[Rfam]
The record is a 110-nucleotide RNA sequence from Prolemur simus, which matches "Y RNA" in Rfam. The family's consensus secondary structure is taken from published work. The match comes from Rfam's covariance-model search (70 bits). The source organism's lineage runs through Eukaryota, Gnathostomata, Euteleostomi, Lemuridae and Prolemur. About the family: Y RNAs are components of the Ro ribonucleoprotein particle (Ro RNP), in association with Ro60 and La proteins.
RNA sequence: GGCUGGUCCGAAGGUUAGUGAGUUAUCUCACUUGAUUAUUCACAGUUACAUAUUGAACUCCUUGUUCUACUGCUUCCCCCCUUCUCACUACUGCACUUGACUAGUCUUAA
Numbered sequence: 001g002g003c004u005g006g007u008c009c010g011a012a013g014g015u016u017a018g019u020g021a022g023u024u025a026u027c028u029c030a031c032u033u034g035a036u037u038a039u040u041c042a043c044a045g046u047u048a049c050a051u052a053u054u055g056a057a058c059u060c061c062u063u064g065u066u067c068u069a070c071u072g073c074u075u076c077c078c079c080c081c082u083u084c085u086c087a088c089u090a091c092u093g094c095a096c097u098u099g100a101c102u103a104g105u106c107u108u109a110a
Stems, first nucleotide, its partner, number of pairs: 001106008010098002014094002017089006041072002044068002